[Rfam]
RNA sequence: CUGAAGGGUUAUAUCAAGAAGUCGAAUGAGGAAGUAACGCUCUGAAAGGCUUCCCCUGCGUCGAAUUGCACGUUUUUCAGUAAGGAAAAGCGUGAGCUCGGUUAAUAGGCAUGAGAAUUUACCGUAACAGUUUCGGCUGACGAAAGCCUACCCGAUGGGGUGGUGUAAAUCAUGGUGCUUGGGUUGAACAG
Number, nucleotide and partner (000 for none) at each position: 001c000002u000003g000004a000005a000006g000007g000008g000009u000010u000011a000012u000013a000014u000015c000016a000017a000018g053019a052020a051021g050022u049023c048024g000025a000026a000027u000028g000029a000030g000031g043032a000033a041034g040035u000036a000037a000038c000039g000040c034041u033042c000043u031044g000045a000046a000047a000048g023049g022050c021051u020052u019053c018054c183055c182056c181057u000058g000059c101060g000061u000062c100063g099064a098065a000066u000067u094068g093069c092070a000071c090072g000073u000074u089075u088076u087077u000078c000079a000080g000081u000082a000083a000084g000085g000086a000087a076088a075089a074090g071091c000092g069093u068094g067095a000096g000097c000098u064099c063100g062101g059102u000103u000104a000105a000106u000107a000108g179109g178110c177111a176112u175113g000114a000115g000116a000117a170118u169119u168120u167121a166122c165123c142124g141125u140126a000127a000128c000129a138130g137131u000132u000133u000134c000135g000136g000137c130138u129139g000140a125141c124142g123143a000144a000145a000146g164147c163148c162149u000150a161151c160152c159153c158154g000155a000156u000157g000158g153159g152160g151161u150162g148163g147164u146165g122166u121167a120168a119169a118170u117171c000172a000173u000174g000175g112176u111177g110178c109179u108180u000181g056182g055183g054184u000185u000186g000187a000188a000189c000190a000191g000